[Rfam]
Nucleotides: 064
Stems, first nucleotide, its partner, number of pairs: 001028005031059002038054005
Number, partner (000 for none) and nucleotide at each position: 001028c002027c003026u004025g005024u006000u007000c008000g009000g010000c011000a012000c013000a014000c015000g016000a017000c018000g019000c020000c021000g022000c023000c024005a025004c026003a027002g028001g029000a030000c031059g032058g033000g034000a035000u036000g037000u038054g039053a040052u041051c042050c043000g044000a045000c046000g047000c048000u049000c050042g051041g052040a053039u054038u055000g056000a057000a058032c059031c060000a061000g062000g063000a064000a